This 97-nucleotide RNA sequence from Elaeis guineensis belongs to the Rfam family "Small nucleolar RNA snoR8a". The organism belongs to Elaeis, within Eukaryota. The base pairs follow the family's consensus structure, which was predicted with WAR. Rfam links the family to the GO terms RNA processing and nucleolus.
RNA sequence: GCUGGUGUCAUGAUUAUAAGAAAAAAAAUUCCUUCUGAGUGCUCUAGCCAUGGGCAUGACAGACUCCUUUCAGCUGCUGAAUAGCAUAUGAGCAUCA
Numbered sequence: 001g002c003u004g005g006u007g008u009c010a011u012g013a014u015u016a017u018a019a020g021a022a023a024a025a026a027a028a029u030u031c032c033u034u035c036u037g038a039g040u041g042c043u044c045u046a047g048c049c050a051u052g053g054g055c056a057u058g059a060c061a062g063a064c065u066c067c068u069u070u071c072a073g074c075u076g077c078u079g080a081a082u083a084g085c086a087u088a089u090g091a092g093c094a095u096c097a
Base pairs, nucleotide, nucleotide: 003097004096006094007093